RNA sequence: UUACAGAACGUUUUAGCUAUUGAACUGUUUUGUCCCUCUCUGUCAAGGAACAAUAUUUUGUUCUUUGACAGAGCGGGACAAAUCAGUUCAUUGGCUAAAACGUUCUGUAAC
Numbered sequence: 001u002u003a004c005a006g007a008a009c010g011u012u013u014u015a016g017c018u019a020u021u022g023a024a025c026u027g028u029u030u031u032g033u034c035c036c037u038c039u040c041u042g043u044c045a046a047g048g049a050a051c052a053a054u055a056u057u058u059u060g061u062u063c064u065u066u067g068a069c070a071g072a073g074c075g076g077g078a079c080a081a082a083u084c085a086g087u088u089c090a091u092u093g094g095c096u097a098a099a100a101c102g103u104u105c106u107g108u109a110a111c
Stems, first nucleotide, its partner, number of pairs: 001110006011100009021090007029072006049062004

The record is a 111-nucleotide RNA from Plutella xylostella, which matches "mir-8517 microRNA precursor family" in Rfam. The family's consensus secondary structure was predicted with RNAalifold. The match comes from Rfam's covariance-model search (89 bits). NCBI's taxonomy places the organism under Eukaryota, Opisthokonta, Eumetazoa, Yponomeutoidea, Plutella.